[Rfam]
The record is a 587-nucleotide part of an RNA from Lactobacillus psittaci, which matches "Bacterial large subunit ribosomal RNA" in Rfam.

RNA sequence: CCCGCGACAGGACGGAAAGACCCCAUGGAGCUUUACUGUAGCUUGAUAUUGAGUAUCUGUUAAACAUGUACAGGAUAGGUAGGAGCCAGAGAAAGUAGGACGCUAGUCUUACUGGAGGCGCUGUUGGGAUACUACCCUUGUUUGAUGGAUGCUCUAACCUAGGUCGCUAAGCGUGGCCAGGGACAGUGUCAGGUGGGCAGUUUGACUGGGGCGGUCGCCUCCUAAAGUGUAACGGAGGCGCCCAAAGGUUCCCUCAGAAUGGUUGGAAAUCAUUCGCAGAGUGUAAAGGUAUAAGGGAGCUUGACUGCGAGACAGACAAGUCGAGCAGGGACGAAAGUCGGGCUUAGUGAUCUGGUGGUACCGCAUGGAAGGGCCAUCACUCAACGGAUAAAAGCUACCCUGGGGAUAACAGGCUUAUCUCCCCCAAGAGUUCACAUCGACGGGGAGGUUUGGCACCUCGAUGUCGGCUCGUCGCAUCCUGGGGCUGAAGUCGGUCCCAAGGGUUGGGCUGUUCGCCCAUUAAAGCGGCACGCGAGCUGGGUUCAGAACGUCGUGAGACAGUUCGGUCCCUAUCCGUCGUGGGCGUA
Numbered sequence: 001c002c003c004g005c006g007a008c009a010g011g012a013c014g015g016a017a018a019g020a021c022c023c024c025a026u027g028g029a030g031c032u033u034u035a036c037u038g039u040a041g042c043u044u045g046a047u048a049u050u051g052a053g054u055a056u057c058u059g060u061u062a063a064a065c066a067u068g069u070a071c072a073g074g075a076u077a078g079g080u081a082g083g084a085g086c087c088a089g090a091g092a093a094a095g096u097a098g099g100a101c102g103c104u105a106g107u108c109u110u111a112c113u114g115g116a117g118g119c120g121c122u123g124u125u126g127g128g129a130u131a132c133u134a135c136c137c138u139u140g141u142u143u144g145a146u147g148g149a150u151g152c153u154c155u156a157a158c159c160u161a162g163g164u165c166g167c168u169a170a171g172c173g174u175g176g177c178c179a180g181g182g183a184c185a186g187u188g189u190c191a192g193g194u195g196g197g198c199a200g201u202u203u204g205a206c207u208g209g210g211g212c213g214g215u216c217g218c219c220u221c222c223u224a225a226a227g228u229g230u231a232a233c234g235g236a237g238g239c240g241c242c243c244a245a246a247g248g249u250u251c252c253c254u255c256a257g258a259a260u261g262g263u264u265g266g267a268a269a270u271c272a273u274u275c276g277c278a279g280a281g282u283g284u285a286a287a288g289g290u291a292u293a294a295g296g297g298a299g300c301u302u303g304a305c306u307g308c309g310a311g312a313c314a315g316a317c318a319a320g321u322c323g324a325g326c327a328g329g330g331a332c333g334a335a336a337g338u339c340g341g342g343c344u345u346a347g348u349g350a351u352c353u354g355g356u357g358g359u360a361c362c363g364c365a366u367g368g369a370a371g372g373g374c375c376a377u378c379a380c381u382c383a384a385c386g387g388a389u390a391a392a393a394g395c396u397a398c399c400c401u402g403g404g405g406a407u408a409a410c411a412g413g414c415u416u417a418u419c420u421c422c423c424c425c426a427a428g429a430g431u432u433c434a435c436a437u438c439g440a441c442g443g444g445g446a447g448g449u450u451u452g453g454c455a456c457c458u459c460g461a462u463g464u465c466g467g468c469u470c471g472u473c474g475c476a477u478c479c480u481g482g483g484g485c486u487g488a489a490g491u492c493g494g495u496c497c498c499a500a501g502g503g504u505u506g507g508g509c510u511g512u513u514c515g516c517c518c519a520u521u522a523a524a525g526c527g528g529c530a531c532g533c534g535a536g537c538u539g540g541g542u543u544c545a546g547a548a549c550g551u552c553g554u555g556a557g558a559c560a561g562u563u564c565g566g567u568c569c570c571u572a573u574c575c576g577u578c579g580u581g582g583g584c585g586u587a
Stems, first nucleotide, its partner, number of pairs: 001583008010575003014570002022404004027400002029396005035201004042193007051154016068137001078136005085119003094113008158181003162178006204216004217239006240385001242342002248300006254280002257275006281290002305328004311322003330339003353379007361372002413454003417451001418448007428438002465540001466538004470532001471529005478503002481498006505519005546564004550559003